[Rfam]
Selenocysteine transfer RNA: a 93-nucleotide RNA from Bacillus sp. PK3_68.
RNA sequence: GGGGGUGGUUGAGGUGCUGGUGCUCUUCCCGGUCUUCAAAACCGAGUGGGACGUCCGUGAGGCGUUCGGUGGGUUCGAUUCCCAUCCUCUCCC
Numbered sequence: 001g002g003g004g005g006u007g008g009u010u011g012a013g014g015u016g017c018u019g020g021u022g023c024u025c026u027u028c029c030c031g032g033u034c035u036u037c038a039a040a041a042c043c044g045a046g047u048g049g050g051a052c053g054u055c056c057g058u059g060a061g062g063c064g065u066u067c068g069g070u071g072g073g074u075u076c077g078a079u080u081c082c083c084a085u086c087c088u089c090u091c092c093c
Base pairs, nucleotide, nucleotide: 001093002092003091004090005089007087008086012027013026014025016023017022030044031043032042033041049067050066051065052064053063070084071083072082073081